This 35-nucleotide sequence from Pedobacter polaris belongs to the Rfam family "DUF805b RNA".
The family's RNA type in Rfam is cis-regulatory element.
[Rfam]
RNA sequence: AAGGUGGAAGCCGAAAAACCUGAUCAGAGUAGGCA
Numbered sequence: 001a002a003g004g005u006g007g008a009a010g011c012c013g014a015a016a017a018a019c020c021u022g023a024u025c026a027g028a029g030u031a032g033g034c035a
Base pairs, nucleotide, nucleotide: 002021003020004019005018010034011033012032